RNA sequence: CCCGGUGACGGGUAUUCUCGGGCCGAUGACACGGACCCGCGGCUGUUAUUGCUCGAGAAUACGCGUGGCCGUG
Numbered sequence: 001c002c003c004g005g006u007g008a009c010g011g012g013u014a015u016u017c018u019c020g021g022g023c024c025g026a027u028g029a030c031a032c033g034g035a036c037c038c039g040c041g042g043c044u045g046u047u048a049u050u051g052c053u054c055g056a057g058a059a060u061a062c063g064c065g066u067g068g069c070c071g072u073g
Stems, first nucleotide, its partner, number of pairs: 001073001003071003008066003012062012025050007032042001
Rfam assigns this 73-nucleotide RNA from Ramphastos sulfuratus to the family "mir-137 microRNA precursor family".
For this family Rfam cites "Evolution, biogenesis, expression, and target predictions of a substantially expanded set of Drosophila microRNAs" (Ruby et al., Genome Res, 2007).
The family's consensus secondary structure was predicted with RNAalifold.
Its family is annotated with miRNA-mediated post-transcriptional gene silencing and RISC complex in the Gene Ontology.
NCBI's taxonomy places the organism under Eukaryota, Opisthokonta, Bilateria, Piciformes, Ramphastos.
A search with the family's covariance model found it, with a score of 66 bits.
The family is grouped with related families in Rfam's "mir-137 clan".